[Rfam]
RNA sequence: ACCUCAUCCAGAGGGGCUGAGGGAACGGCCCGAUGAAGCCCCGGCAACCACCACUGACGACUCGAUGACGAGGCCGCGCGUGGCAGGUGCCAAUUCCGUCCCGGUGUGCGACUCCCGGGAAAGAUGAGAG
Numbered sequence: 001a002c003c004u005c006a007u008c009c010a011g012a013g014g015g016g017c018u019g020a021g022g023g024a025a026c027g028g029c030c031c032g033a034u035g036a037a038g039c040c041c042c043g044g045c046a047a048c049c050a051c052c053a054c055u056g057a058c059g060a061c062u063c064g065a066u067g068a069c070g071a072g073g074c075c076g077c078g079c080g081u082g083g084c085a086g087g088u089g090c091c092a093a094u095u096c097c098g099u100c101c102c103g104g105u106g107u108g109c110g111a112c113u114c115c116c117g118g119g120a121a122a123g124a125u126g127a128g129a130g
Stems, first nucleotide, its partner, number of pairs: 003128006013042005021031003025099004043091004048087002051083004095122001100119005
SAM riboswitch aptamer (S box leader): a 130-nucleotide sequence from Planosporangium mesophilum. The match comes from Rfam's covariance-model search (82 bits). The source organism's lineage runs through Bacteria, Actinomycetota, Micromonosporales, Micromonosporaceae and Planosporangium.